[Rfam]
RNA sequence: AAGUAUUGCAGCUCUUUUAUAAUUUGUCUAGCUGGUUUUAUAGGUUUUACCAGAAACCUCC
Number, nucleotide and partner (000 for none) at each position: 001a000002a000003g000004u000005a000006u000007u000008g000009c000010a000011g000012c000013u000014c000015u000016u000017u000018u000019a000020u000021a000022a000023u000024u000025u000026g000027u000028c000029u000030a000031g000032c000033u000034g058035g057036u056037u055038u054039u053040a000041u052042a000043g050044g000045u000046u000047u000048u000049a000050c043051c000052a041053g039054a038055a037056a036057c035058c034059u000060c000061c000
Shown here is a 61-nucleotide RNA sequence from Colobus angolensis, a member of the family "U7 small nuclear RNA". About the family: Animal histone pre-mRNAs are spliced by a different mechanism than nuclear pre-mRNAs and self-splicing introns. This processing involves the U7 snRNP, which contains only one RNA species: U7. The 5' end of U7 RNA is thought to base-pair to a conserved spacer element downstream of the cleavage site in histone pre-mRNA. This family contains a number of annotated U7 pseudogenes.